[Rfam]
The family of this 386-nucleotide RNA sequence from Arcticibacter svalbardensis is "Bacterial RNase P class A". Ribonuclease P (RNase P) is a ubiquitous endoribonuclease, found in archaea, bacteria and eukarya as well as chloroplasts and mitochondria. Its best characterised activity is the generation of mature 5'-ends of tRNAs by cleaving the 5'-leader elements of precursor-tRNAs. Cellular RNase Ps are ribonucleoproteins. RNA from bacterial RNase Ps retains its catalytic activity in the absence of the protein subunit, i.e. it is a ribozyme. Isolated eukaryotic and archaeal RNase P RNA has not been shown to retain its catalytic function, but is still essential for the catalytic activity of the holoenzyme. Although the archaeal and eukaryotic holoenzyme s have a much greater protein content than the bacterial ones, the RNA cores from all the three lineages are homologous -- helices corresponding to P1, P2, P3, P4, and P10/11 are common to all cellular RNase P RNAs. Yet, there is considerable sequence variation, particularly among the eukaryotic RNAs. Identified in Yersinia as Ysr151/RnpB. The family's consensus secondary structure is taken from published work. It is annotated as a ribozyme. Taxonomically the source falls in Arcticibacter svalbardensis (Bacteria, Pseudomonadati, Sphingobacteriia, Arcticibacter). It scores 247 bits against the family's covariance model.
RNA sequence: UCUUAAGGUCGUUCUAUCGCCGGAUACAUUAUCAGGAGGAAAGUCCGGGCAACACAGAGCAUCCUGCUUCCUAACGGGAAGGGCAUAGUAAUAUGAACGGAAAGUGCCACAGAAAAUAAACUACCAAAGGUGUUAUGCAUCGUUGGAAAAGGUGAAAACGCGAGGUAAGAGCUCACGGCCUUGUUUGGUAACAAGCAUUGCGGUAAACCCCAGGAGUUGAAAGACCAAAUAUGCUGAUGUUUAAGGGCUGCUCGUCCUUUAUUUGCUUCUUGCGAAUACAUCAGUGGGUAGGUCGUUUGAACUUGUCAGCGAUGGCAAGGCUAGAUAAAUGAUAGAAGCCUCAUUUACUUGAGGAACAGAACCCGGCUUACAGACCUUAAAUUUUA
Numbered sequence: 001u002c003u004u005a006a007g008g009u010c011g012u013u014c015u016a017u018c019g020c021c022g023g024a025u026a027c028a029u030u031a032u033c034a035g036g037a038g039g040a041a042a043g044u045c046c047g048g049g050c051a052a053c054a055c056a057g058a059g060c061a062u063c064c065u066g067c068u069u070c071c072u073a074a075c076g077g078g079a080a081g082g083g084c085a086u087a088g089u090a091a092u093a094u095g096a097a098c099g100g101a102a103a104g105u106g107c108c109a110c111a112g113a114a115a116a117u118a119a120a121c122u123a124c125c126a127a128a129g130g131u132g133u134u135a136u137g138c139a140u141c142g143u144u145g146g147a148a149a150a151g152g153u154g155a156a157a158a159c160g161c162g163a164g165g166u167a168a169g170a171g172c173u174c175a176c177g178g179c180c181u182u183g184u185u186u187g188g189u190a191a192c193a194a195g196c197a198u199u200g201c202g203g204u205a206a207a208c209c210c211c212a213g214g215a216g217u218u219g220a221a222a223g224a225c226c227a228a229a230u231a232u233g234c235u236g237a238u239g240u241u242u243a244a245g246g247g248c249u250g251c252u253c254g255u256c257c258u259u260u261a262u263u264u265g266c267u268u269c270u271u272g273c274g275a276a277u278a279c280a281u282c283a284g285u286g287g288g289u290a291g292g293u294c295g296u297u298u299g300a301a302c303u304u305g306u307c308a309g310c311g312a313u314g315g316c317a318a319g320g321c322u323a324g325a326u327a328a329a330u331g332a333u334a335g336a337a338g339c340c341u342c343a344u345u346u347a348c349u350u351g352a353g354g355a356a357c358a359g360a361a362c363c364c365g366g367c368u369u370a371c372a373g374a375c376c377u378u379a380a381a382u383u384u385u386a
Base pairs, nucleotide, nucleotide: 003380004379005378006377007376008375009374010373011371012337013336014335015334016333017332018331020036021035023033024032025031026030041369042368043367045366046365047364048363049362050219051218052217053216057271058270059269062215063214064213065212066211067081068080069079070078071077082098084095085094086093099210100209104208105207106204107203108202121151122150124146125145126144127143129141130140131139159177160176162174163173164172182197183196184195185194186193187192223294224293225292226291233285234284235283236282237281238280262276263275264274265273266272302319303318304317305316306315307314308313